[Rfam]
RNA: Caenorhabditis snoRNA ceN80
Organism: Caenorhabditis briggsae
RNA sequence: UUGCAUCGAAAAGGGACGGGGUUUCCUACUGGAUUGUUCCGUAUAAUUUUGGUGCGAAAGCAUAGAGAGCCGCAGUGUUACUCUUCAUCACAGAUUUUGUGAACGGAGAGUGUCAAGCGGUUCCCACAUUC
Numbered sequence: 001u002u003g004c005a006u007c008g009a010a011a012a013g014g015g016a017c018g019g020g021g022u023u024u025c026c027u028a029c030u031g032g033a034u035u036g037u038u039c040c041g042u043a044u045a046a047u048u049u050u051g052g053u054g055c056g057a058a059a060g061c062a063u064a065g066a067g068a069g070c071c072g073c074a075g076u077g078u079u080a081c082u083c084u085u086c087a088u089c090a091c092a093g094a095u096u097u098u099g100u101g102a103a104c105g106g107a108g109a110g111u112g113u114c115a116a117g118c119g120g121u122u123c124c125c126a127c128a129u130u131c
Stems, first nucleotide, its partner, number of pairs: 003055009016042005024033003065125001067123007076115002079112008089101004